[Rfam]
RNA sequence: AGAAAUUCUGGUUACUGACGGAUAUGUGAAGAGACACAGUGUAGCCGGAGGGAUGGAGACAUCUUGUUAUUAGCCGACCGUCUGGGCAGCUUCU
Dot-bracket structure: .....(((((((..(.[[[[[....(((......)))...)..)))))))....................(.(((..]]]]]..))).).....